[Rfam]
RNA sequence: CUGGGAUGUUGACCUAGCCUCUCCUUGGCUUUGUCUGUGUUUACCACAUUUCAGACAUAGCCUGAUAGAGGUUACGUUUAGUCCCAUUU
Numbered sequence: 001c002u003g004g005g006a007u008g009u010u011g012a013c014c015u016a017g018c019c020u021c022u023c024c025u026u027g028g029c030u031u032u033g034u035c036u037g038u039g040u041u042u043a044c045c046a047c048a049u050u051u052c053a054g055a056c057a058u059a060g061c062c063u064g065a066u067a068g069a070g071g072u073u074a075c076g077u078u079u080a081g082u083c084c085c086a087u088u089u
Stems, first nucleotide, its partner, number of pairs: 012077002015074006027062004032057005
Dot-bracket structure: ...........((.((((((......((((.(((((................))))).))))......)))))).))............
Shown here is an 89-nucleotide RNA from Operophtera brumata, a member of the family "mir-282 microRNA precursor family". A reference for the family is Li et al. (2009), "Direct sequencing and expression analysis of a large number of miRNAs in Aedes aegypti and a multi-species survey of novel mosquito miRNAs", BMC Genomics. A search with the family's covariance model found it, with a score of 80 bits.